[Rfam]
Nucleotides: 115
Base pairs, nucleotide, nucleotide: 003074005072006071009064010063012061017060018059019058028054029053030052031051032050033049034048035047092115094114095113096112097111098110099109
Number, partner (000 for none) and nucleotide at each position: 001000a002000u003074a004000g005072u006071c007000u008000g009064g010063u011000g012061u013000c014000u015000c016000u017060u018059c019058a020000g021000a022000u023000c024000a025000c026000a027000u028054a029053a030052a031051u032050c033049u034048u035047u036000u037000a038000c039000c040000u041000u042000u043000a044000a045000u046000u047035a048034a049033a050032g051031a052030u053029u054028u055000c056000u057000a058019u059018g060017g061012g062000a063010a064009c065000a066000a067000u068000u069000c070000a071006g072005a073000g074003u075000u076000u077000u078000c079000a080000c081000u082000c083000a084000g085000u086000u087000u088000u089000u090000g091000c092115a093000g094114g095113c096112c097111u098110u099109g100000u101000a102000c103000c104000a105000c106000u107000c108000a109099c110098a111097a112096g113095g114094u115092u